This 87-nucleotide sequence belongs to the Rfam family "c-di-GMP-II-GAG riboswitch aptamer". Clan: c-di-GMP_II riboswitch clan. The literature on the family includes a 2017 paper in Proc Natl Acad Sci U S A by Weinberg et al., "Bioinformatic analysis of riboswitch structures uncovers variant classes with altered ligand specificity".

RNA sequence: CUGCUUCGGGGAAGCGACGAUCCGCGGUCAACGUCUCGGUCACCGACCGACCGCGGGGAGCGAGUGGUGAGACCGGCCCCGGACCCU
Numbered sequence: 001c002u003g004c005u006u007c008g009g010g011g012a013a014g015c016g017a018c019g020a021u022c023c024g025c026g027g028u029c030a031a032c033g034u035c036u037c038g039g040u041c042a043c044c045g046a047c048c049g050a051c052c053g054c055g056g057g058g059a060g061c062g063a064g065u066g067g068u069g070a071g072a073c074c075g076g077c078c079c080c081g082g083a084c085c086c087u
Stems, first nucleotide, its partner, number of pairs: 003085001005083007014061002022056008038074002040070005